Shown here is a 31-nucleotide sequence from Alligator sinensis, a member of the family "Iron response element II". The match comes from Rfam's covariance-model search (30 bits). Rfam links the family to the GO term response to iron ion. The family's consensus secondary structure is taken from published work. Rfam's curators write: IRE, TFRC, SLC40A1, SDHB, SLC11A2, CDC42BPA, ACO2, ALAS2_H.SAPIENS, CDC14A, EPAS1, ALAS2, qoxD, Hao1, NDUFS1, transferrin, Aconitate. On this family, see Gunshin et al., FEBS Lett 2001: "Iron-dependent regulation of the divalent metal ion transporter".

RNA sequence: UUAAAAUCAUGAGCAGUGACUCAUAUUUUCA
Numbered sequence: 001u002u003a004a005a006a007u008c009a010u011g012a013g014c015a016g017u018g019a020c021u022c023a024u025a026u027u028u029u030c031a
Stems, first nucleotide, its partner, number of pairs: 001031001003029005009024005014018001